[Rfam]
RNA sequence: UCUAGAUCUCGAGACAUGGGCUGAACACUGAACAAUGUCUUGGCUGCAGGAUAGAUUCAGACUUCUCCGUUGUUGCUAUAAUUUGGACUUGAAAACAGUCUUUUUAAAUCUUUGACUCCACAUGAAAGUUUUAGACCUAUGUAUUAGCUUUCCAUC
Number, nucleotide and partner (000 for none) at each position: 001u000002c000003u154004a000005g152006a151007u000008c147009u146010c000011g145012a144013g000014a142015c141016a140017u139018g138019g137020g136021c134022u133023g132024a131025a130026c000027a129028c128029u127030g000031a000032a000033c000034a000035a123036u122037g121038u000039c000040u000041u000042g118043g117044c000045u115046g000047c000048a112049g111050g110051a109052u108053a000054g105055a104056u000057u000058c000059a000060g099061a000062c098063u097064u000065c000066u000067c000068c000069g000070u000071u000072g088073u087074u086075g000076c000077u000078a000079u000080a000081a000082u000083u000084u000085g000086g074087a073088c072089u000090u000091g000092a000093a000094a000095a000096c000097a063098g062099u060100c000101u000102u000103u000104u055105u054106a000107a000108a052109u051110c050111u049112u048113u000114g000115a045116c000117u043118c042119c000120a000121c037122a036123u035124g000125a000126a000127a029128g028129u027130u025131u024132u023133a022134g021135a000136c020137c019138u018139a017140u016141g015142u014143a000144u012145u011146a009147g008148c000149u000150u000151u006152c005153c000154a003155u000156c000
RNA: MIR2912 microRNA precursor family